The record is a 69-nucleotide RNA sequence from Canis lupus, which matches "mir-302 microRNA precursor family" in Rfam.
The literature on the family includes a 2004 paper in Dev Biol by Suh et al., "Human embryonic stem cells express a unique set of microRNAs".
Rfam links the family to the GO terms miRNA-mediated post-transcriptional gene silencing and RISC complex.
Clan: mir-290 clan.
Pairs were carried over by alignment from the consensus structure, which was predicted with RNAalifold.
[Rfam]
RNA sequence: CCACCACUUAAACGUGGAUGUACUUGCUUUGAAACUCAAAAAGUAAGUGCUUCCAUGUUUUAGUGAUGG
Number, nucleotide and partner (000 for none) at each position: 001c069002c068003a067004c000005c065006a064007c063008u062009u000010a060011a059012a058013c057014g056015u055016g054017g053018a052019u000020g050021u049022a048023c047024u046025u045026g044027c043028u042029u000030u000031g000032a000033a000034a000035c000036u000037c000038a000039a000040a000041a000042a028043g027044u026045a025046a024047g023048u022049g021050c020051u000052u018053c017054c016055a015056u014057g013058u012059u011060u010061u000062a008063g007064u006065g005066a000067u003068g002069g001

Rfam 15.1 lists 2,090 matches to the family in 516 species.